[Rfam]
RNA: Small nucleolar RNA Z13/snr52
Organism: Agaricus bisporus
RNA sequence: AUUAUUCCAAGGAUGAUACCAAUUCGGAUGUAAAAAAACACAUUUUCCGAGAUGCGCUUUACAAACCUUGUGGAAAUUUCCGUUGCCUUCCUUCUGAUCUUUUUU
Dot-bracket structure: ...(....................((((..................................................))))....................)..
Numbered sequence: 001a002u003u004a005u006u007c008c009a010a011g012g013a014u015g016a017u018a019c020c021a022a023u024u025c026g027g028a029u030g031u032a033a034a035a036a037a038a039c040a041c042a043u044u045u046u047c048c049g050a051g052a053u054g055c056g057c058u059u060u061a062c063a064a065a066c067c068u069u070g071u072g073g074a075a076a077u078u079u080c081c082g083u084u085g086c087c088u089u090c091c092u093u094c095u096g097a098u099c100u101u102u103u104u105u
Stems, first nucleotide, its partner, number of pairs: 004103001025082004